Rfam assigns this 78-nucleotide sequence from Callorhinus ursinus to the family "mir-147 microRNA precursor family". Rfam 15.1 lists 757 matches to the family in 593 species. A search with the family's covariance model found it, with a score of 78 bits. Gene Ontology terms of the family: miRNA-mediated post-transcriptional gene silencing and RISC complex.
RNA sequence: CAUGAAUCUAGUGGAAACAUUGCUGCACAAACUAGAUUAUGGAUACCAGUGUGUGGAAAUACUUCUCCUACAUUUUUA
Numbered sequence: 001c002a003u004g005a006a007u008c009u010a011g012u013g014g015a016a017a018c019a020u021u022g023c024u025g026c027a028c029a030a031a032c033u034a035g036a037u038u039a040u041g042g043a044u045a046c047c048a049g050u051g052u053g054u055g056g057a058a059a060u061a062c063u064u065c066u067c068c069u070a071c072a073u074u075u076u077u078a
Base pairs, nucleotide, nucleotide: 002077004075005074006073007072009070010069011068013066014065015064016063019060020059021058023056024055025054026053027052028051029050032049033048